[Rfam]
RNA sequence: CGCGGCGACGGGUAUUCUCGGGCGGAUAGCACGGGCUGGCUGUUAUUGCUGGAGAAUACGCGUAGCCGAG
Numbered sequence: 001c002g003c004g005g006c007g008a009c010g011g012g013u014a015u016u017c018u019c020g021g022g023c024g025g026a027u028a029g030c031a032c033g034g035g036c037u038g039g040c041u042g043u044u045a046u047u048g049c050u051g052g053a054g055a056a057u058a059c060g061c062g063u064a065g066c067c068g069a070g
Stems, first nucleotide, its partner, number of pairs: 001070001003068003008063003012059008021050003025047007032039001
RNA: mir-137 microRNA precursor family
Organism: Pterocles gutturalis